[Rfam]
The record is a 205-nucleotide sequence from Pundamilia nyererei, which matches "Small nucleolar RNA SNORA74" in Rfam.
The match comes from Rfam's covariance-model search (73 bits).
Lineage of the source: Eukaryota > Chordata > Euteleostomi > Neoteleostei > Pundamilia.
U19 belongs to the H/ACA class of snoRNAs. snoRNAs bind a number of proteins (including dyskerin, Gar1p and Nop10p in the case of the H/ACA class) to form snoRNP complexes.
RNA sequence: GCCAGCUCUCAGUCAGCUGUCCAGAUAAUCUGUGUCUGGCUCAGUGUUACAGUGCUGGUAGAUGAAGCUCCUGUUUUUUUUUGCUUCAGUGCAGCAGGUUCUGUUUUAGAAUCCGCUGCUGCUGUGCUGCUACAGGACUUGGCCCAGUGAGAGUGGACUGUCCUGAUUCUGACCGCAGGCCAGGCCUAGUACAGGGUCACACAAA
Numbered sequence: 001g002c003c004a005g006c007u008c009u010c011a012g013u014c015a016g017c018u019g020u021c022c023a024g025a026u027a028a029u030c031u032g033u034g035u036c037u038g039g040c041u042c043a044g045u046g047u048u049a050c051a052g053u054g055c056u057g058g059u060a061g062a063u064g065a066a067g068c069u070c071c072u073g074u075u076u077u078u079u080u081u082u083g084c085u086u087c088a089g090u091g092c093a094g095c096a097g098g099u100u101c102u103g104u105u106u107u108a109g110a111a112u113c114c115g116c117u118g119c120u121g122c123u124g125u126g127c128u129g130c131u132a133c134a135g136g137a138c139u140u141g142g143c144c145c146a147g148u149g150a151g152a153g154u155g156g157a158c159u160g161u162c163c164u165g166a167u168u169c170u171g172a173c174c175g176c177a178g179g180c181c182a183g184g185c186c187u188a189g190u191a192c193a194g195g196g197u198c199a200c201a202c203a204a205a
Stems, first nucleotide, its partner, number of pairs: 001059006008052002012050002016045004022038005069137006083127002086124001087121005094114001096112001099111004140199006155186002159182002162179004